[Rfam]
RNA sequence: ACAUUGCAUAAAGCGCCAGAGCUGCAGUAUUUCAGCAGUUGACGAGGAGAAGGAGGUCACAUGUAGUAUUGGAGGGACAAAUCUUUUAAAGCCCAAUGAACAUGUGAAUUAUCGAAAAUUCGGCGGAAACCUUCUGGUCUACCAUGAUCACUAAAGACUUUACAAAUAUUACAGGUAACUGUAUAACAAAAUAAGUCUUAAAUGGUUAU
Numbered sequence: 001a002c003a004u005u006g007c008a009u010a011a012a013g014c015g016c017c018a019g020a021g022c023u024g025c026a027g028u029a030u031u032u033c034a035g036c037a038g039u040u041g042a043c044g045a046g047g048a049g050a051a052g053g054a055g056g057u058c059a060c061a062u063g064u065a066g067u068a069u070u071g072g073a074g075g076g077a078c079a080a081a082u083c084u085u086u087u088a089a090a091g092c093c094c095a096a097u098g099a100a101c102a103u104g105u106g107a108a109u110u111a112u113c114g115a116a117a118a119u120u121c122g123g124c125g126g127a128a129a130c131c132u133u134c135u136g137g138u139c140u141a142c143c144a145u146g147a148u149c150a151c152u153a154a155a156g157a158c159u160u161u162a163c164a165a166a167u168a169u170u171a172c173a174g175g176u177a178a179c180u181g182u183a184u185a186a187c188a189a190a191a192u193a194a195g196u197c198u199u200a201a202a203u204g205g206u207u208a209u
Base pairs, nucleotide, nucleotide: 020040021039022038023037024036025035027033049134050133051132052131053130057123058122135150136149137148138147139146154199155198156197157196158195159194160193170183171182172181173180174179
A member of the RNA family "glmS glucosamine-6-phosphate activated ribozyme aptamer" from Pseudobacteroides cellulosolvens, 209 nucleotides long.
The organism belongs to Pseudobacteroides cellulosolvens, within Bacteria.
By type it is a riboswitch.
The family's consensus secondary structure is taken from published work.